[Rfam]
RNA sequence: AAGAUCAUACUUCACAGGAUCAUUUCUGUAGUAUAUCUUCGGAUCUGCUCUGCGAAAUGCUGAGUUGAUGCAGCCACGAUGAGGAGACAUAGUUCUCUUCCUUGAGCGUGAGGCCGACUUUACAAUCUGCUUGAUAAUCGGAUUGUUUGGUCAUCGAUGAUCGUUCACCCCCUUUACUCAGUAAGGGGGGCCAUGGGAAGUAGAGCUUUCUGAGUGGU
Numbered sequence: 001a002a003g004a005u006c007a008u009a010c011u012u013c014a015c016a017g018g019a020u021c022a023u024u025u026c027u028g029u030a031g032u033a034u035a036u037c038u039u040c041g042g043a044u045c046u047g048c049u050c051u052g053c054g055a056a057a058u059g060c061u062g063a064g065u066u067g068a069u070g071c072a073g074c075c076a077c078g079a080u081g082a083g084g085a086g087a088c089a090u091a092g093u094u095c096u097c098u099u100c101c102u103u104g105a106g107c108g109u110g111a112g113g114c115c116g117a118c119u120u121u122a123c124a125a126u127c128u129g130c131u132u133g134a135u136a137a138u139c140g141g142a143u144u145g146u147u148u149g150g151u152c153a154u155c156g157a158u159g160a161u162c163g164u165u166c167a168c169c170c171c172c173u174u175u176a177c178u179c180a181g182u183a184a185g186g187g188g189g190g191c192c193a194u195g196g197g198a199a200g201u202a203g204a205g206c207u208u209u210c211u212g213a214g215u216g217g218u
Base pairs, nucleotide, nucleotide: 001039002038003037004036005035007034008033009032010031011030015028016027017026018025019024048062052060053059073218074217075216076215077214092206093205094204095203096202097200098199099198100197101196102195106164107163108162116152117151118150119149122146123145124144125143126141127140129138168190169188170187171186172185173184174183
This 218-nucleotide RNA sequence from Vespula pensylvanica belongs to the Rfam family "Small nucleolar RNA U3". Rfam 15.1 lists 19,072 matches to the family in 1,215 species. It scores 133 bits against the family's covariance model. Its family is annotated with RNA processing and nucleolus in the Gene Ontology. Rfam classes the family as a C/D-box small nucleolar RNA. Lineage of the source: Eukaryota > Arthropoda > Dicondylia > Apocrita > Vespula. Small nucleolar RNAs (snoRNAs) are involved in the processing and modification of rRNA in the nucleolus. There are two main classes of snoRNAs: the box C/D class, and the box H/ACA class. U3 snoRNA is a member of the box C/D class.